This 78-nucleotide sequence from Carex littledalei belongs to the Rfam family "Small nucleolar RNA R160". For this family Rfam cites "The high diversity of snoRNAs in plants: identification and comparative study of 120 snoRNA genes from Oryza sativa" (Chen et al., Nucleic Acids Res, 2003). Taxonomically the source falls in Carex subgen. Euthyceras (Eukaryota, Streptophyta, Tracheophyta, Petrosaviidae). Its family is annotated with RNA processing and nucleolus in the Gene Ontology. From the family's description: snoR160 is a C/D box small nucleolar RNA, which acts as a methylation guide for 25S ribosomal RNA in plants. snoR160 has been alternatively named snoZ270 in rice. The pairing is the family consensus, mapped onto this sequence.
RNA sequence: AGCAAAUGAGGAGAAAUUAUUUCGAUCUGAAAUUCAUGUUGAUAAUUAUCAAAUGGUCUUCAAAGUUCUCUGAUCGCU
Numbered sequence: 001a002g003c004a005a006a007u008g009a010g011g012a013g014a015a016a017u018u019a020u021u022u023c024g025a026u027c028u029g030a031a032a033u034u035c036a037u038g039u040u041g042a043u044a045a046u047u048a049u050c051a052a053a054u055g056g057u058c059u060u061c062a063a064a065g066u067u068c069u070c071u072g073a074u075c076g077c078u
Base pairs, nucleotide, nucleotide: 001078002077003076005074